Description
The family of this 118-nucleotide RNA sequence from Hemiprocne comata is "Small nucleolar RNA SNORA26". Rfam's curators write: The snoRNA HBI-6 belong to the H/ACA family of snoRNAs, guiding the pseudouridylation of position U4522 if the 28S rRNA. HBI-6 is the human orthologue of mouse MBI-6 snoRNA. For this family Rfam cites "RNomics: an experimental approach that identifies 201 candidates for novel, small, non-messenger RNAs in mouse" (Huttenhofer et al., EMBO J, 2001).
[Rfam]
RNA sequence: UUGCCCUCUUAAGUCUGGCAGUGUCUUAAGUGGCCAACACAGAGGGGUAUACAAGUUCUCUCUCAAACCCAGAGCUGAGGUUGAAACUCUUCUUUGGAUCAUGCAGAGAGGAACAAGU
Numbered sequence: 001u002u003g004c005c006c007u008c009u010u011a012a013g014u015c016u017g018g019c020a021g022u023g024u025c026u027u028a029a030g031u032g033g034c035c036a037a038c039a040c041a042g043a044g045g046g047g048u049a050u051a052c053a054a055g056u057u058c059u060c061u062c063u064c065a066a067a068c069c070c071a072g073a074g075c076u077g078a079g080g081u082u083g084a085a086a087c088u089c090u091u092c093u094u095u096g097g098a099u100c101a102u103g104c105a106g107a108g109a110g111g112a113a114c115a116a117g118u
Stems, first nucleotide, its partner, number of pairs: 002049006009042002016036002019030001056112001058110005069097006077089003081086001
Notes: NCBI's taxonomy places the organism under Eukaryota, Eumetazoa, Vertebrata, Euteleostomi, Hemiprocne. The base pairs follow the family's consensus structure, which was predicted with RNAalifold.